Rfam assigns this 111-nucleotide RNA sequence from Acrocarpospora corrugata to the family "TPP riboswitch aptamer (THI element)".
RNA sequence: CUUCAAACCCGCGGGAGCUCGGGCGUAACCGGGCUGAGAGGGCAACCAGCGUUGCCGACCGCAUGAACCUGUCCGGGUAAUGCCGGCGUAGGGAGUGUGUGAUGGCGCGUG
Numbered sequence: 001c002u003u004c005a006a007a008c009c010c011g012c013g014g015g016a017g018c019u020c021g022g023g024c025g026u027a028a029c030c031g032g033g034c035u036g037a038g039a040g041g042g043c044a045a046c047c048a049g050c051g052u053u054g055c056c057g058a059c060c061g062c063a064u065g066a067a068c069c070u071g072u073c074c075g076g077g078u079a080a081u082g083c084c085g086g087c088g089u090a091g092g093g094a095g096u097g098u099g100u101g102a103u104g105g106c107g108c109g110u111g
Stems, first nucleotide, its partner, number of pairs: 007098002010095001011062004017034005041056005068092004073086004